[Rfam]
Overview
The family of this 222-nucleotide RNA sequence from bacterium HR12 is "raiA RNA".

RNA sequence: CGCGCCCGGGUCUGUGGUUGCCCGGGGAGCGGCUCCCCGGUAGUCGAUGCCAGCCGCGGGCGAAACGACCCACGUAAGGCGACCCUUGGUCGCUGAGCAUGGCGCGGUUUAGAUGUAAGACCUGCCUCGGCGGGGGCGACCUCGCCGGGAGAGGUGGCGAAGCCGAGAGGCGAUCCACCCAGCAGGCGGGUGUGGGGGCAAAGACCAGGUCAGCCGGGCGCG
Dot-bracket structure: (((((((((..((((((((...........................((([.(((((((.]........((......((..(((.....))).)).....[)))))))))...........(((((((((((((((....))))))))))...((((.....((......))....))))..)))))....)))......]..)))))...))))))))))))
Numbered sequence: 001c002g003c004g005c006c007c008g009g010g011u012c013u014g015u016g017g018u019u020g021c022c023c024g025g026g027g028a029g030c031g032g033c034u035c036c037c038c039g040g041u042a043g044u045c046g047a048u049g050c051c052a053g054c055c056g057c058g059g060g061c062g063a064a065a066c067g068a069c070c071c072a073c074g075u076a077a078g079g080c081g082a083c084c085c086u087u088g089g090u091c092g093c094u095g096a097g098c099a100u101g102g103c104g105c106g107g108u109u110u111a112g113a114u115g116u117a118a119g120a121c122c123u124g125c126c127u128c129g130g131c132g133g134g135g136g137c138g139a140c141c142u143c144g145c146c147g148g149g150a151g152a153g154g155u156g157g158c159g160a161a162g163c164c165g166a167g168a169g170g171c172g173a174u175c176c177a178c179c180c181a182g183c184a185g186g187c188g189g190g191u192g193u194g195g196g197g198g199c200a201a202a203g204a205c206c207a208g209g210u211c212a213g214c215c216g217g218g219c220g221c222g
Stems, first nucleotide, its partner, number of pairs: 001222009012213003015207005047193003050060001052109007069102002077094002081091003100200001121186005126149010153179004162171002